[Rfam]
RNA sequence: UCGGCUUCUCUCCGAUCUACUCGUGCCUACGCACAAACUCGUUCGUGGGCAAUGACGAGACGUGAAGCAAAAGUGAUCUGUUCCUCUCGCUAUCCGACGCGGAAUUUUUGAUGCGACCGGACGUCGAGGAACUACACUU
Numbered sequence: 001u002c003g004g005c006u007u008c009u010c011u012c013c014g015a016u017c018u019a020c021u022c023g024u025g026c027c028u029a030c031g032c033a034c035a036a037a038c039u040c041g042u043u044c045g046u047g048g049g050c051a052a053u054g055a056c057g058a059g060a061c062g063u064g065a066a067g068c069a070a071a072a073g074u075g076a077u078c079u080g081u082u083c084c085u086c087u088c089g090c091u092a093u094c095c096g097a098c099g100c101g102g103a104a105u106u107u108u109u110g111a112u113g114c115g116a117c118c119g120g121a122c123g124u125c126g127a128g129g130a131a132c133u134a135c136a137c138u139u
Stems, first nucleotide, its partner, number of pairs: 001071001004068002008064001009060002013057002016054001024051007033042002080132007088123002093121004102114001104112001

About this RNA
The family of this 139-nucleotide sequence from Leersia perrieri is "Small nucleolar RNA snoR136". NCBI's taxonomy places the organism under Eukaryota, Viridiplantae, Embryophyta, Poaceae, Leersia. Rfam classes the family as an H/ACA-box small nucleolar RNA. The match comes from Rfam's covariance-model search (48 bits). Rfam links the family to the GO terms RNA processing and nucleolus. For this family Rfam cites "Mining small RNA sequencing data: a new approach to identify small nucleolar RNAs in Arabidopsis" (Chen and Wu, Nucleic Acids Res, 2009).